IMES-2 RNA motif: a 141-nucleotide sequence. The literature on the family includes a 2009 paper in Nature by Weinberg et al., "Exceptional structured noncoding RNAs revealed by bacterial metagenome analysis". The family's RNA type in Rfam is non-coding RNA gene. The family's consensus secondary structure is taken from published work.
RNA sequence: UAAUGAAUUAAGAGGCAACUCUUAACUGACCGAUUGGGGAAAAGCCGAGAGGUUCAAGCCCAAGGGGCAGAAAGUUCUGCAGAGCAGCGCUAAACAUGCAGGACGACGGACACGGCGGUAGCGCCUAAAACGACGUGUCAA
Dot-bracket structure: .......(((((((....)))))))(((.((..(((((....((((....))))....)))))..)))))...((((((((.....[[[[[.....))))))))....((((((.((..]]]]]......)).))))))..